Shown here is a 217-nucleotide RNA sequence from Cupriavidus plantarum, a member of the family "6S / SsrS RNA". The family's RNA type in Rfam is non-coding RNA gene. The family has 150 seed sequences and 5,006 matches in Rfam 15.1.
RNA sequence: GUUUCCCUGCCUGGUUCGUGAAGGUCAUAAUUCCUUGAACCGAUAUGCAUUGCAUGGUGCGGGAUCAUGUCGUGUGGGCGAGCGCGUCGCUGCAUUCAUAGUCUGGGCCAAGCCUGGACUCCCUGAGUGGGUGAUGUACCCAAAAUACGACUUCCGCAGCCACUCUGAACCUCACUUGGGUUCAGGAUGCCGAUCUAGCGGCCGAGGCGGGGACCCC
Numbered sequence: 001g002u003u004u005c006c007c008u009g010c011c012u013g014g015u016u017c018g019u020g021a022a023g024g025u026c027a028u029a030a031u032u033c034c035u036u037g038a039a040c041c042g043a044u045a046u047g048c049a050u051u052g053c054a055u056g057g058u059g060c061g062g063g064a065u066c067a068u069g070u071c072g073u074g075u076g077g078g079c080g081a082g083c084g085c086g087u088c089g090c091u092g093c094a095u096u097c098a099u100a101g102u103c104u105g106g107g108c109c110a111a112g113c114c115u116g117g118a119c120u121c122c123c124u125g126a127g128u129g130g131g132u133g134a135u136g137u138a139c140c141c142a143a144a145a146u147a148c149g150a151c152u153u154c155c156g157c158a159g160c161c162a163c164u165c166u167g168a169a170c171c172u173c174a175c176u177u178g179g180g181u182u183c184a185g186g187a188u189g190c191c192g193a194u195c196u197a198g199c200g201g202c203c204g205a206g207g208c209g210g211g212g213a214c215c216c217c
Stems, first nucleotide, its partner, number of pairs: 004213008012204004017200003032187003036184006056161002059157006069151007080139001